[Rfam]
RNA sequence: UAAAUUUGCACCGUCUUACAAAAGCUGUAAUGACAUACAUAAGAAUUAUUAAAUAAAUAUUGGAAUG
Numbered sequence: 001u002a003a004a005u006u007u008g009c010a011c012c013g014u015c016u017u018a019c020a021a022a023a024g025c026u027g028u029a030a031u032g033a034c035a036u037a038c039a040u041a042a043g044a045a046u047u048a049u050u051a052a053a054u055a056a057a058u059a060u061u062g063g064a065a066u067g
Stems, first nucleotide, its partner, number of pairs: 014033002016030003